Shown here is a 59-nucleotide RNA, a member of the family "nhaA-I RNA". Acidobacteria, Alphaproteobacteria, Betaproteobacteria and Gammaproteobacteria, Verrucomicrobia, cand. division NC10. The base pairs follow the family's consensus structure, which is taken from published work. By type it is a riboswitch. It is one of the family's seed sequences.
RNA sequence: GGGUCCGCGGAUUUAUCGAGUCCGCGGAGGAGUUCUGCAAAUGGUCGGGCCGCCAUCUG
Dot-bracket structure: ....((((((((.......))))))))..........((.(.(((......))).).))